Description
The family of this 86-nucleotide RNA sequence from Neobacillus mesonae is "c-di-GMP-I riboswitch aptamer". Its Rfam clan is "c-di-GMP_I riboswitch clan". A search with the family's covariance model found it, with a score of 70 bits. The family's consensus secondary structure is taken from published work.

[Rfam]
RNA sequence: CGUACGAAACGGCAAACCUAUUGAAAGAUGGGGACGCAAAGCUAUAGGGGCUAAAGUCUUCGCGACGACGCUCGCCAGUUACCGAA
Numbered sequence: 001c002g003u004a005c006g007a008a009a010c011g012g013c014a015a016a017c018c019u020a021u022u023g024a025a026a027g028a029u030g031g032g033g034a035c036g037c038a039a040a041g042c043u044a045u046a047g048g049g050g051c052u053a054a055a056g057u058c059u060u061c062g063c064g065a066c067g068a069c070g071c072u073c074g075c076c077a078g079u080u081a082c083c084g085a086a
Stems, first nucleotide, its partner, number of pairs: 012037002017032006040080004047076002049072003056066003